[Rfam]
This 47-nucleotide RNA sequence from Juglans regia belongs to the Rfam family "Plastid-rpl16 group II-D1 intron". Pairs were carried over by alignment from the consensus structure, which was predicted with LocARNA.
RNA sequence: AAGAGCCCUGAGUCAAUAAAGACGGAGAAAAUUGAUUCAUGGACACA
Numbered sequence: 001a002a003g004a005g006c007c008c009u010g011a012g013u014c015a016a017u018a019a020a021g022a023c024g025g026a027g028a029a030a031a032u033u034g035a036u037u038c039a040u041g042g043a044c045a046c047a
Base pairs, nucleotide, nucleotide: 007041010038011037012036013035014034015033016032017031
Plastid-rpl16 is a non-coding RNA (ncRNA) recognised in plastids. It was recognised in and intronic region of a ribosome rpl16 gene. Its family is annotated with Group II intron splicing in the Gene Ontology.